[Rfam]
RNA sequence: AAGGAGAAAGCCGAAAAGCCUUUGACAAAGAGUAGGUA
Numbered sequence: 001a002a003g004g005a006g007a008a009a010g011c012c013g014a015a016a017a018g019c020c021u022u023u024g025a026c027a028a029a030g031a032g033u034a035g036g037u038a
Base pairs, nucleotide, nucleotide: 002021003020004019010037011036012035
A member of the RNA family "DUF805b RNA" from Kordia sp. SMS9, 38 nucleotides long. It scores 40 bits against the family's covariance model. The family's consensus secondary structure is taken from published work. Clan: DUF805 clan. By type it is a cis-regulatory element.